RNA sequence: UCGUCAGGUAGGAUAAUCCUUACCUGUUCCUCAUUUUGGAGGGCAGAUUAGAACAUGAUGAUUGGAGUUCACAUGACUCUGCGUAAUCAGGACUUGCAACACCCUGAUUGCUUCUAUAUGAU
Numbered sequence: 001u002c003g004u005c006a007g008g009u010a011g012g013a014u015a016a017u018c019c020u021u022a023c024c025u026g027u028u029c030c031u032c033a034u035u036u037u038g039g040a041g042g043g044c045a046g047a048u049u050a051g052a053a054c055a056u057g058a059u060g061a062u063u064g065g066a067g068u069u070c071a072c073a074u075g076a077c078u079c080u081g082c083g084u085a086a087u088c089a090g091g092a093c094u095u096g097c098a099a100c101a102c103c104c105u106g107a108u109u110g111c112u113u114c115u116a117u118a119u120g121a122u
Base pairs, nucleotide, nucleotide: 024046025045026044028043029042030041031040032039075079083111084110085109086108087107088106089105090104091103
RNA: U8 small nucleolar RNA
Organism: Hipposideros armiger